[Rfam]
RNA sequence: GACAGAGGUAGCCCCGCUAAAAUCGCGACGUCCUGUCGCAACGCGGGACACAUACAUCCUGUAUG
Numbered sequence: 001g002a003c004a005g006a007g008g009u010a011g012c013c014c015c016g017c018u019a020a021a022a023u024c025g026c027g028a029c030g031u032c033c034u035g036u037c038g039c040a041a042c043g044c045g046g047g048a049c050a051c052a053u054a055c056a057u058c059c060u061g062u063a064u065g
Stems, first nucleotide, its partner, number of pairs: 011049001013047005025039005051065005
Dot-bracket structure: ..........(.(((((.......(((((.....)))))...))))).).(((((.....)))))